[Rfam]
The family of this 74-nucleotide RNA from Alligator mississippiensis is "Mammalian CPEB3 ribozyme". Gene Ontology term of the family: RNA nuclease activity. The match comes from Rfam's covariance-model search (56 bits).
RNA sequence: ACUGACAUAACAGCCAUAGUAGAAGCACUCGCGUUGUGGCCCUGUCAGAUUCUAGUGAAUCUGCAAAUUCUGCU
Number, nucleotide and partner (000 for none) at each position: 001a000002c000003u000004g000005a000006c000007a000008u000009a000010a000011c000012a000013g040014c039015c038016a000017u000018a074019g073020u072021a071022g070023a069024a068025g037026c036027a035028c000029u000030c000031g000032c000033g000034u000035u027036g026037u025038g015039g014040c013041c000042c000043u000044g000045u000046c063047a062048g061049a060050u059051u058052c057053u000054a000055g000056u000057g052058a051059a050060u049061c048062u047063g046064c000065a000066a000067a000068u024069u023070c022071u021072g020073c019074u018